Mammalian CPEB3 ribozyme: a 74-nucleotide sequence from Crocodylus porosus. Pairs were carried over by alignment from the consensus structure, which is taken from published work. NCBI's taxonomy places the organism under Eukaryota, Eumetazoa, Deuterostomia, Sarcopterygii, Crocodylus.

RNA sequence: UUAGCAGAGGAAGGCCAAAGCAGAAGUAUUAACAGAACAACCUGUCAGAUUCCAACAAAUCUGAAAAUUCUGUU
Dot-bracket structure: ............[[....(((((((((.........))..]]...((((((......))))))....)))))))